Nucleotides: 326
Base pairs, nucleotide, nucleotide: 005025008022009021010020011019012018013017029042030041053241054240055239056238058236063109064108065107067105068104072100073099074098076096110142111141116136118134146304148303149302150301151300152299244290245289246288249285250284251283312323313322314321315320
Number, partner (000 for none) and nucleotide at each position: 001000a002000g003000c004000g005025c006000c007000u008022c009021c010020u011019g012018a013017a014000u015000c016000u017013u018012u019011c020010g021009g022008g023000c024000a025005g026000c027000a028000u029042g030041g031000a032000u033000c034000g035000g036000a037000a038000a039000c040000g041030c042029c043000a044000u045000g046000g047000c048000u049000g050000a051000a052000u053241g054240u055239g056238g057000u058236c059000a060000a061000a062000u063109u064108c065107a066000a067105g068104g069000a070000a071000g072100c073099c074098u075000a076096a077000g078000u079000g080000a081000u082000g083000a084000a085000a086000a087000u088000u089000u090000c091000c092000a093000u094000c095000a096076u097000a098074g099073g100072g101000u102000a103000a104068c105067c106000c107065u108064g109063a110142g111141c112000c113000a114000a115000g116136c117000c118134u119000u120000u121000c122000g123000g124000u125000g126000c127000c128000u129000c130000g131000c132000c133000g134118g135000a136116g137000g138000a139000a140000g141111g142110u143000g144000c145000a146304g147000a148303g149302a150301c151300u152299a153000g154000c155000a156000g157000g158000u159000u160000g161000g162000u163000u164000u165000u166000g167000g168000g169000g170000c171000a172000a173000a174000u175000u176000u177000u178000u179000u180000u181000g182000a183000g184000g185000a186000u187000c188000u189000u190000g191000a192000a193000u194000g195000c196000u197000a198000a199000c200000g201000u202000u203000u204000g205000u206000a207000g208000c209000g210000a211000a212000a213000g214000g215000u216000c217000a218000u219000c220000g221000c222000c223000a224000a225000c226000c227000c228000a229000g230000c231000a232000u233000a234000a235000c236058g237000g238056c239055c240054a241053c242000c243000a244290c245289c246288u247000a248000c249285g250284g251283a252000a253000a254000c255000u256000g257000u258000a259000g260000g261000g262000a263000u264000u265000u266000g267000g268000u269000a270000a271000c272000c273000a274000a275000a276000u277000c278000c279000u280000g281000g282000g283251u284250u285249c286000u287000a288246g289245g290244g291000u292000g293000a294000a295000g296000a297000g298000a299152u300151a301150g302149u303148c304146c305000a306000g307000a308000g309000a310000g311000u312323u313322g314321g315320g316000g317000a318000a319000a320315c321314c322313c323312a324000c325000a326000c
Rfam assigns this 326-nucleotide RNA sequence from Picosynechococcus sp. PCC 7002 to the family "Group I catalytic intron". Gene Ontology term of the family: Group I intron splicing. The base pairs follow the family's consensus structure, which is taken from published work. Group I catalytic introns are large self-splicing ribozymes. They catalyse their own excision from mRNA, tRNA and rRNA precursors in a wide range of organisms. The core secondary structure consists of 9 paired regions (P1-P9).